[Rfam]
RNA sequence: UAAUUGCAUGAUGAACAAUUACUUUCGCCCCUAACUGAAAAAAAAUUCAUGUUGAGUGCGAAUUGAUUGGUCUUACUGAAGUUCAAUU
Number, nucleotide and partner (000 for none) at each position: 001u085002a083003a082004u081005u000006g000007c000008a000009u000010g000011a000012u000013g000014a000015a000016c000017a000018a000019u000020u000021a000022c000023u000024u000025u000026c000027g000028c000029c000030c000031c000032u000033a000034a000035c000036u000037g000038a000039a000040a000041a000042a000043a000044a000045a000046u000047u000048c000049a000050u000051g000052u000053u000054g000055a000056g000057u000058g000059c000060g000061a000062a000063u000064u000065g000066a000067u000068u000069g000070g000071u000072c000073u000074u000075a000076c000077u000078g000079a000080a000081g004082u003083u002084c000085a001086a000087u000088u000

A member of the RNA family "Small nucleolar RNA Me28S-Gm1083" from Bactrocera dorsalis, 88 nucleotides long. The base pairs follow the family's consensus structure. It is annotated as a C/D-box small nucleolar RNA. Gene Ontology terms of the family: nucleolus and RNA processing. The literature on the family includes a 2005 paper in RNA by Huang et al., "Genome-wide analyses of two families of snoRNA genes from Drosophila melanogaster, demonstrating the extensive utilization of introns for coding of snoRNAs". The match comes from Rfam's covariance-model search (59 bits).